[Rfam]
RNA: Small nucleolar RNA U109
Organism: Propithecus coquereli
RNA sequence: UGGCAUGCCGGACGGGCGCGCUGCUUCUCUUUAAAGAGCGCGGAUUUAUCUAUACCAUGUGACAUGCAUGAAAUGAGAAGUUUCCGGGGCUGCCAACCUCUCGUUAAGGUUUGCUGGUAGUAUAUUUCUGCUGCAAUA
Numbered sequence: 001u002g003g004c005a006u007g008c009c010g011g012a013c014g015g016g017c018g019c020g021c022u023g024c025u026u027c028u029c030u031u032u033a034a035a036g037a038g039c040g041c042g043g044a045u046u047u048a049u050c051u052a053u054a055c056c057a058u059g060u061g062a063c064a065u066g067c068a069u070g071a072a073a074u075g076a077g078a079a080g081u082u083u084c085c086g087g088g089g090c091u092g093c094c095a096a097c098c099u100c101u102c103g104u105u106a107a108g109g110u111u112u113g114c115u116g117g118u119a120g121u122a123u124a125u126u127u128c129u130g131c132u133g134c135a136a137u138a
Stems, first nucleotide, its partner, number of pairs: 003060005017042006077131001079129002089118002095111005